Background
c-di-GMP-II-GAG riboswitch aptamer: an 83-nucleotide RNA. It is one of the family's seed sequences. The base pairs follow the family's consensus structure, which is taken from published work. A reference for the family is Weinberg et al. (2017), "Bioinformatic analysis of riboswitch structures uncovers variant classes with altered ligand specificity", Proc Natl Acad Sci U S A.

RNA sequence: GAACUGACGGGAGGCUCUGACACGCGGUCCAUACGCCGGCCGCCGCGACCGCGCCGAGCCACUGGCGAGACCGACCCGCGCUC
Numbered sequence: 001g002a003a004c005u006g007a008c009g010g011g012a013g014g015c016u017c018u019g020a021c022a023c024g025c026g027g028u029c030c031a032u033a034c035g036c037c038g039g040c041c042g043c044c045g046c047g048a049c050c051g052c053g054c055c056g057a058g059c060c061a062c063u064g065g066c067g068a069g070a071c072c073g074a075c076c077c078g079c080g081c082u083c
Base pairs, nucleotide, nucleotide: 001083002082004080008078009077010076011075013060014059015058023053024052025051026050027049028048029047038072039071041067042066043065044064